[Rfam]
RNA sequence: GUGGUGGCGCGGACGCCGACCGGCCACACCGCGUCCGCCCGCAGCAGCGCCUCGUCCCCCAGGUGGUCGCCGUCGGCGUGCGAGCCCAGCACGGUGGACUCGCCGUACCGGCCGGUGCCGUGCCGCUCGACCUUGCCGUGGGCGACCAGCAGCAGCUCGCCGACCGGGUCUCCCGCGGCCACCAGCUGCUCGCCGGCCCGGAACUCGCGCUGUUCGAAUCCGCCGGCCAGGGCGACGAGCAGUGCCUCGUCCGAGACCUCCCGCAGCAGCGGCAGCUCGCGCAGCGAGGGCGGCACGACCCUGACCCGCGAGCCGGUGCGGGCGAAGGCGACCCGGCCGCCGCCGACCGCGUAGGUGAGCCGGCGGUUCACCCGGUACGUGCCGCCGGACACCUGCACCCAGGGGAGCAUCCGCAGCAGCCAGCGCGAGCUGAUCUCCUGCAUCUGGGGGGCCGAUUUGGUGGUGCUGGCCAGAUUCCGCGCACCGGCCGUGCUCAGGCUGGACUGCUGCCGCACCUG
Dot-bracket structure: .....((.((((..(..(.(.((...(.((.(.....((((((.(...((.((((........(..(((.(((((((......(.((.(.(((((......))))).).)))....)))).....((.(.((.....(((((((....(.((....((...(.((((.(......................))))).).))..)))....)))))..)).....)).).))))).)))..)...(...(((......(.(((...((.(((......)))...))..))).)....)))...)....)))))).).)))))).)..)).)..)).))(((........)))........(((((((..(((.......)))))))))).)..)))).))(((((((.((..(((.(.......))))...)).))))))).....((.(.((.((((((((.......)))))).)).)).).))((.((....(((......)))....))...)).
Numbered sequence: 001g002u003g004g005u006g007g008c009g010c011g012g013a014c015g016c017c018g019a020c021c022g023g024c025c026a027c028a029c030c031g032c033g034u035c036c037g038c039c040c041g042c043a044g045c046a047g048c049g050c051c052u053c054g055u056c057c058c059c060c061a062g063g064u065g066g067u068c069g070c071c072g073u074c075g076g077c078g079u080g081c082g083a084g085c086c087c088a089g090c091a092c093g094g095u096g097g098a099c100u101c102g103c104c105g106u107a108c109c110g111g112c113c114g115g116u117g118c119c120g121u122g123c124c125g126c127u128c129g130a131c132c133u134u135g136c137c138g139u140g141g142g143c144g145a146c147c148a149g150c151a152g153c154a155g156c157u158c159g160c161c162g163a164c165c166g167g168g169u170c171u172c173c174c175g176c177g178g179c180c181a182c183c184a185g186c187u188g189c190u191c192g193c194c195g196g197c198c199c200g201g202a203a204c205u206c207g208c209g210c211u212g213u214u215c216g217a218a219u220c221c222g223c224c225g226g227c228c229a230g231g232g233c234g235a236c237g238a239g240c241a242g243u244g245c246c247u248c249g250u251c252c253g254a255g256a257c258c259u260c261c262c263g264c265a266g267c268a269g270c271g272g273c274a275g276c277u278c279g280c281g282c283a284g285c286g287a288g289g290g291c292g293g294c295a296c297g298a299c300c301c302u303g304a305c306c307c308g309c310g311a312g313c314c315g316g317u318g319c320g321g322g323c324g325a326a327g328g329c330g331a332c333c334c335g336g337c338c339g340c341c342g343c344c345g346a347c348c349g350c351g352u353a354g355g356u357g358a359g360c361c362g363g364c365g366g367u368u369c370a371c372c373c374g375g376u377a378c379g380u381g382c383c384g385c386c387g388g389a390c391a392c393c394u395g396c397a398c399c400c401a402g403g404g405g406a407g408c409a410u411c412c413g414c415a416g417c418a419g420c421c422a423g424c425g426c427g428a429g430c431u432g433a434u435c436u437c438c439u440g441c442a443u444c445u446g447g448g449g450g451g452c453c454g455a456u457u458u459g460g461u462g463g464u465g466c467u468g469g470c471c472a473g474a475u476u477c478c479g480c481g482c483a484c485c486g487g488c489c490g491u492g493c494u495c496a497g498g499c500u501g502g503a504c505u506g507c508u509g510c511c512g513c514a515c516c517u518g
Stems, first nucleotide, its partner, number of pairs: 006399002009396004015390001018337001020336001022334002027330001029328002032324001038322006045315001049313002052311004064241001067238003071234003074120004084112001086111002089108001091106005126231002129228001131226002138219002140215005149206001151205002157201002162198001164196004169192001245303001249299003258292001260290003266285002269280003338351003360388007369381003400440007408432002412427003416424001446485002449482001451480002454477002456474006486517002489512002495506003
Shown here is a 518-nucleotide RNA from Streptomyces sp. TLI_235, a member of the family "Saccharopolyspora sRNA 350". Its family is annotated with regulation of secondary metabolite biosynthetic process in the Gene Ontology. It scores 144 bits against the family's covariance model. By type it is an antisense RNA. A reference for the family is Liu et al. (2013), "Prediction and characterization of small non-coding RNAs related to secondary metabolites in Saccharopolyspora erythraea", PLoS One. Lineage of the source: Bacteria > Bacillati > Actinomycetes > Streptomycetaceae > Streptomyces. Rfam 15.1 lists 1,170 matches to the family in 705 species.